[Rfam]
RNA: Mammalian CPEB3 ribozyme
Organism: Scyliorhinus torazame
RNA sequence: UGAGGACUUGAUGGCCAAGGAAGUAGUGUUCAUAACAUGGCCAAACAAGUUGAGUGCCAACUUGUGAAUCCUUCU
Numbered sequence: 001u002g003a004g005g006a007c008u009u010g011a012u013g014g015c016c017a018a019g020g021a022a023g024u025a026g027u028g029u030u031c032a033u034a035a036c037a038u039g040g041c042c043a044a045a046c047a048a049g050u051u052g053a054g055u056g057c058c059a060a061c062u063u064g065u066g067a068a069u070c071c072u073u074c075u
Stems, first nucleotide, its partner, number of pairs: 013042004019075005025069001026038003046064007